This 263-nucleotide part of an RNA from Denitrovibrio acetiphilus belongs to the Rfam family "Bacterial large subunit ribosomal RNA".
Pairs were carried over by alignment from the consensus structure, which is taken from published work.
The sequence is in the family's curated seed alignment.
Gene Ontology terms of the family: ribosome and structural constituent of ribosome.

[Rfam]
RNA sequence: GGAGAUUUGAAGGGGUCUGUCCCUAGUACGAGAGGACCGGGAUGGACAGAACUCUGGUGUUCCAAUUGUUCCGCCAGGAGCAUUGUUGGGUAGCUAUUUCUGGAACAGAUAACCGCUGAAAGCAUCUAAGCGGGAAACUGGCCCUAAGAUGAGAUCUCCCUGACUUUAUAGUCAUUAAAGGACACAUGUAGAUUACGUGUUUGAUAGGCUGGGUGUGUAAGCGUUGUGAGGCGUUGAGCUGACCAGUACUAAUAGUCCGUAAG
Number, nucleotide and partner (000 for none) at each position: 001g159002g158003a157004g156005a155006u154007u153008u152009g000010a000011a145012g144013g143014g142015g000016u000017c045018u044019g043020u042021c041022c040023c039024u000025a000026g000027u000028a000029c000030g000031a000032g000033a000034g000035g000036a000037c000038c000039g023040g022041g021042a020043u019044g018045g017046a000047c102048a101049g100050a099051a098052c000053u000054c000055u096056g095057g094058u000059g000060u000061u000062c089063c088064a087065a086066u085067u082068g081069u080070u079071c078072c077073g000074c000075c000076a000077g072078g071079a070080g069081c068082a067083u000084u000085g066086u065087u064088g063089g062090g000091u000092a000093g000094c057095u056096a055097u000098u051099u050100c049101u048102g047103g000104a000105a000106c140107a139108g138109a000110u000111a000112a000113c133114c132115g131116c130117u129118g000119a000120a000121a000122g000123c000124a000125u000126c000127u000128a000129a117130g116131c115132g114133g113134g000135a000136a000137a000138c108139u107140g106141g000142c014143c013144c012145u011146a000147a000148g000149a000150u000151g000152a008153g007154a006155u005156c004157u003158c002159c001160c000161u000162g173163a172164c171165u000166u000167u000168a000169u000170a000171g164172u163173c162174a000175u000176u000177a260178a000179a000180g258181g257182a256183c255184a200185c199186a198187u197188g196189u000190a000191g000192a000193u000194u000195a000196c188197g187198u186199g185200u184201u000202u000203g000204a000205u251206a250207g249208g247209c246210u245211g244212g243213g000214u000215g239216u000217g000218u000219a000220a000221g234222c233223g232224u231225u230226g000227u000228g000229a000230g225231g224232c223233g222234u221235u000236g000237a000238g000239c215240u000241g000242a000243c212244c211245a210246g209247u208248a000249c207250u206251a205252a000253u000254a000255g183256u182257c181258c180259g000260u177261a000262a000263g000